Rfam assigns this 75-nucleotide sequence from Bradyrhizobium sp. STM 3843 to the family "Makes More Granules Regulator RNA (mmgR)". Rfam describes the family as follows. SuhB later renamed mmgR (makes more granules regulator) was a putative non-coding RNA found multiple times in the Agrobacterium tumefaciens genome and related alpha-proteobacteria. Other non-coding RNAs uncovered in the same analysis include: speF, ybhL, metA, and serC.Several studies inSinorhizobium meliloti showed that suhB element is indeed a non-coding RNA:firstly it was detected on Northern blot and called Sm8RNA, secondly in an RNAseq study referred to as SmelC689.The mutant phenotype's (strain lacking the small RNA) cytoplasm contains higher content of polyhydroxybutyrate (PBH)storage granules than wild type strain. Rfam classes the family as a small RNA.

[Rfam]
RNA sequence: UGAUGUAGCCCUCUUGGGCGUUUCCUCCCUGGACUUGGGCCGCCUGUACUUCAGGCGGCCUUUCUUUUUGUUUGC
Numbered sequence: 001u002g003a004u005g006u007a008g009c010c011c012u013c014u015u016g017g018g019c020g021u022u023u024c025c026u027c028c029c030u031g032g033a034c035u036u037g038g039g040c041c042g043c044c045u046g047u048a049c050u051u052c053a054g055g056c057g058g059c060c061u062u063u064c065u066u067u068u069u070g071u072u073u074g075c
Base pairs, nucleotide, nucleotide: 008019009018010017011016038060039059040058041057042056043055044054045053046052

Record summary:
Lineage of the source: Bacteria > Pseudomonadati > Pseudomonadota > Nitrobacteraceae > Bradyrhizobium.